[Rfam]
RNA: RNase MRP
RNA sequence: UUCAUGGACAAAGAAUUGUUUUCGAAGCUAUCAAAAGGCCCGUUAGUGGCUCCAUAAUGCUUUGGGGAAAGUCUCCUACCGUCUAUGCGGAGACGUAGCGAACCAAUCAGUUCGUUUGGUGGGCCAUAAUUAGCUUAGAACCAUGAUGUUUGUAGGUUCCUAUGAAACUGGCUUACUAGUACUUGAUGGAUCCCUUCGUGGAUCUUGAUAUUGUGUUUGUUUGCGUCAUGUUCCAGGGUACCAAGUCGUGUGGACAUUCUUCUUGUGGCUUGUCAUAAUGACAAAAUAUUCGGUAAUGGAAUUGUGUAUUCUAGACGAUAGUUAUGACAAUUGGCUAUAAUUGUUUAGCUAACUCAAUGGAGCUCACUCUUGGUCCAUGG
Number, nucleotide and partner (000 for none) at each position: 001u000002u380003c379004a378005u377006g376007g375008a374009c372010a371011a370012a000013g000014a332015a331016u330017u329018g328019u327020u000021u000022u065023c064024g063025a062026a061027g060028c059029u000030a000031u000032c000033a000034a000035a000036a000037g052038g051039c000040c049041c048042g047043u000044u000045a000046g000047u042048g041049g040050c000051u038052c037053c000054a000055u000056a000057a000058u000059g028060c027061u026062u025063u024064g023065g022066g000067g000068a000069a000070a364071g363072u000073c362074u361075c360076c359077u000078a000079c000080c000081g000082u000083c000084u000085a000086u097087g096088c095089g094090g000091a000092g000093a000094c089095g088096u087097a086098g115099c114100g113101a112102a111103c110104c000105a000106a000107u000108c000109a000110g103111u102112u101113c100114g099115u098116u000117u000118g000119g000120u000121g000122g000123g000124c000125c000126a000127u000128a000129a000130u000131u000132a000133g000134c000135u000136u000137a000138g000139a000140a000141c000142c000143a000144u000145g000146a000147u000148g000149u000150u000151u000152g000153u000154a000155g000156g000157u000158u000159c000160c000161u000162a000163u000164g000165a000166a000167a000168c000169u000170g000171g000172c000173u000174u000175a000176c000177u000178a000179g000180u000181a000182c000183u000184u000185g000186a000187u000188g000189g000190a000191u000192c000193c000194c000195u000196u000197c000198g000199u000200g000201g000202a000203u000204c000205u000206u000207g000208a000209u000210a000211u000212u000213g000214u000215g000216u000217u000218u000219g000220u000221u000222u000223g000224c000225g000226u000227c000228a000229u000230g302231u301232u300233c299234c298235a297236g000237g000238g000239u295240a294241c293242c292243a000244a000245g000246u000247c000248g289249u288250g287251u286252g000253g000254a000255c000256a000257u000258u000259c000260u000261u000262c000263u000264u000265g000266u000267g000268g000269c000270u000271u000272g282273u281274c280275a279276u000277a000278a000279u275280g274281a273282c272283a000284a000285a000286a251287u250288a249289u248290u000291c000292g242293g241294u240295a239296a000297u235298g234299g233300a232301a231302u230303u000304g000305u000306g000307u000308a000309u000310u000311c000312u000313a000314g000315a000316c000317g000318a000319u000320a000321g000322u000323u000324a000325u000326g000327a019328c018329a017330a016331u015332u014333g000334g349335c348336u347337a346338u000339a344340a000341u000342u000343g000344u339345u000346u337347a336348g335349c334350u000351a000352a000353c000354u000355c000356a000357a000358u000359g076360g075361a074362g073363c071364u070365c000366a000367c000368u000369c000370u011371u010372g009373g000374u008375c007376c006377a005378u004379g003380g002